[Rfam]
RNA sequence: UGGAGGACUGAGAAGGUAAGCCAGUUAACUCCUUGCUGUAGCUUACUGCUUCAGGCCUCCAAAAUUGUACUUGUGUAAUAGCAGCUCAUGCUUCCUUCUUGAUGUGAGGGAAAGCAGUACUGCAUUACACAUA
Numbered sequence: 001u002g003g004a005g006g007a008c009u010g011a012g013a014a015g016g017u018a019a020g021c022c023a024g025u026u027a028a029c030u031c032c033u034u035g036c037u038g039u040a041g042c043u044u045a046c047u048g049c050u051u052c053a054g055g056c057c058u059c060c061a062a063a064a065u066u067g068u069a070c071u072u073g074u075g076u077a078a079u080a081g082c083a084g085c086u087c088a089u090g091c092u093u094c095c096u097u098c099u100u101g102a103u104g105u106g107a108g109g110g111a112a113a114g115c116a117g118u119a120c121u122g123c124a125u126u127a128c129a130c131a132u133a
Base pairs, nucleotide, nucleotide: 002060003059004058005057006056015047016046017045018044022038023037024036025035080121081120083118085117086116092112093111094110095109096108099106